Shown here is a 117-nucleotide sequence from Shigella sonnei, a member of the family "Group II catalytic intron D1-D4-2".
Rfam describes the family as follows. Group II introns are found in rRNA, tRNA and mRNA of organelles in fungi, plants and protists, and also in mRNA in bacteria.
The base pairs follow the family's consensus structure.
The source organism's lineage runs through Bacteria, Pseudomonadati, Enterobacterales, Enterobacteriaceae and Shigella sonnei.
A reference for the family is Chu et al. (2001), "Control of branch-site choice by a group II intron", EMBO J.
RNA sequence: AUCACUGGCGCUGACAGUCAGGGUUUACAGGAGCACUGACCAAACGACCCGGUGCUGCUUCAUUCUAAGGAAUGAGGUGGUGAGCGACUCGGGAAAAGGCAGAGAUCUACUGUCACG
Numbered sequence: 001a002u003c004a005c006u007g008g009c010g011c012u013g014a015c016a017g018u019c020a021g022g023g024u025u026u027a028c029a030g031g032a033g034c035a036c037u038g039a040c041c042a043a044a045c046g047a048c049c050c051g052g053u054g055c056u057g058c059u060u061c062a063u064u065c066u067a068a069g070g071a072a073u074g075a076g077g078u079g080g081u082g083a084g085c086g087a088c089u090c091g092g093g094a095a096a097a098g099g100c101a102g103a104g105a106u107c108u109a110c111u112g113u114c115a116c117g
Stems, first nucleotide, its partner, number of pairs: 002014003017040005023034004045117002048093005053087001054081002057078003061074002063071002098114005